Shown here is a 112-nucleotide sequence, a member of the family "Rhizobiales sRNA Atu_At1". Rfam classes the family as a small RNA.

RNA sequence: ACGCGCCGGGUGUCAACCGGCCGCAACGGAGAAGAUGGACGCGGUUGAUUUUGCCGGUUUCUGACCGCGGCAGCAACGUAUUGGUAUGCGUGGCAUCUAACCCGUUUCCGGC
Dot-bracket structure: .....((((.((.(.....).)).(((((....((((..(((((((................)))))))((..(........)))........))))....))))).)))).